[Rfam]
RNA: COG3943 RNA
RNA sequence: AAUGCUCCACACAGGUUUAAAAAACUUGAAUACGUGGCCAUCCAACUGAAUCAGUGAUGAAACACCAGCAGCUAUGGUUGAUAGGGAUAUCGGCAGUUAGCUGUAAAUUAGGUGU
Numbered sequence: 001a002a003u004g005c006u007c008c009a010c011a012c013a014g015g016u017u018u019a020a021a022a023a024a025c026u027u028g029a030a031u032a033c034g035u036g037g038c039c040a041u042c043c044a045a046c047u048g049a050a051u052c053a054g055u056g057a058u059g060a061a062a063c064a065c066c067a068g069c070a071g072c073u074a075u076g077g078u079u080g081a082u083a084g085g086g087a088u089a090u091c092g093g094c095a096g097u098u099a100g101c102u103g104u105a106a107a108u109u110a111g112g113u114g115u
Stems, first nucleotide, its partner, number of pairs: 012028005039059003043056001062115005068104007077094006